[Rfam]
RNA sequence: AAUAACAGACGGGAGCUUGUGAUACAGGCUGAGAGGAAGGUGAGACCUUCGACCGAGAACCUGAUUUGGAUAAUGCCAACGUAGGGAUGCCUGGGGAACUAUGCG
Numbered sequence: 001a002a003u004a005a006c007a008g009a010c011g012g013g014a015g016c017u018u019g020u021g022a023u024a025c026a027g028g029c030u031g032a033g034a035g036g037a038a039g040g041u042g043a044g045a046c047c048u049u050c051g052a053c054c055g056a057g058a059a060c061c062u063g064a065u066u067u068g069g070a071u072a073a074u075g076c077c078a079a080c081g082u083a084g085g086g087a088u089g090c091c092u093g094g095g096g097a098a099c100u101a102u103g104c105g
Stems, first nucleotide, its partner, number of pairs: 006093003010089001011054002015029005036050005060085004066079004
This 105-nucleotide sequence from Butyrivibrio sp. YAB3001 belongs to the Rfam family "TPP riboswitch aptamer (THI element)". Gene Ontology term of the family: thiamine pyrophosphate binding.